[Rfam]
RNA sequence: UUGACGGUGUGCUCCCACGUCGGCGGCUCCUCGCCCUCCUCGGUCCCGAGGAGGGCCUGCUCGCCGAAGAAGUCGCCGUUCGCGAGCGUGCCGAGGACGGCGUCGGAGCCGUACUCGCCCGCGCCGAUCUUGCUGAGCUUGCCGUGCGCGACGAGGACGACGCGGUCGACCGGGCGCCCCCGCUCGACGACGACGUCGCCGGGCGCGAACUCCUGCUGGGUGAAGCGCCCCGCGAUGGCGUCCAGGGUCAGGUCGUCGUCGUAGCCGCGCAGCGGGGCCAGCUCGCCGAGCUCGCGCGGGAUCACGCGGACGUCGGCGCCGGUCGUGACGAACGUGACGCGGCCGUCGCCCAGCGUGUAGGUGAGCCGCCGGUUGACGCGGUAGGUGCCGCCGGACGCCUGCACCCAGGGAAGCAGCUUCAGCAACCACCGCGACGUGAUGCCCUGCAUCUGCGGGACGGACUUGGUCGUGGUCGCCAGGUUCCGCGCGGCGGCGGUGCUCAGGCUGUGCUGGUGGUCCUGUUG
Dot-bracket structure: .....((((((..(........((.((...((((..((.............(.((((....((((((....(.(((((((.((......(.((((.(((((......))))).)))))....)).).......((.....((..(((.((..(.(...(.....(....((.(((.(..(........)..).....))).))..)...).).)..)).))..)..))..))..)))))).)...(.((.....((.(((.....((((.(((.(.(......).)...)))))))...))).))..)).).))))))..)))).)...))..)))).)).))(((........)))........(((.(((...((.......)).))).)))..)..))))))(((((.(.((..(.(.(.......)).)...)).).))))).....((.(..((((((((((.......)))))).))))..).))((.(((..((((......))))..)))...)).
Shown here is a 524-nucleotide sequence from Actinomadura coerulea, a member of the family "Saccharopolyspora sRNA 350". It scores 167 bits against the family's covariance model. A reference for the family is Liu et al. (2013), "Prediction and characterization of small non-coding RNAs related to secondary metabolites in Saccharopolyspora erythraea", PLoS One. Taxonomically the source falls in Actinomadura (Bacteria, Actinomycetota, Streptosporangiales, Thermomonosporaceae). The family's consensus secondary structure was predicted with RNAfold.